[Rfam]
The record is a 58-nucleotide sequence from Agaribacter marinus, which matches "Pseudomonas sRNA P26" in Rfam. The match comes from Rfam's covariance-model search (46 bits). The organism belongs to Agaribacter, within Bacteria. By type it is a non-coding RNA gene. The base pairs follow the family's consensus structure, which was predicted with RNAalifold. From the family's description: This small RNA (sRNA) was computationally identified in the genome of the opportunistic pathogen Pseudomonas aeruginosa and its expression verified by northern blot analysis.
RNA sequence: UGCUACUAGUUACUAGCCUGUAUUAGGCUAAGGCUGAUGGUUUUUAAACCAUCAGCCU
Numbered sequence: 001u002g003c004u005a006c007u008a009g010u011u012a013c014u015a016g017c018c019u020g021u022a023u024u025a026g027g028c029u030a031a032g033g034c035u036g037a038u039g040g041u042u043u044u045u046a047a048a049c050c051a052u053c054a055g056c057c058u
Stems, first nucleotide, its partner, number of pairs: 014030005032057010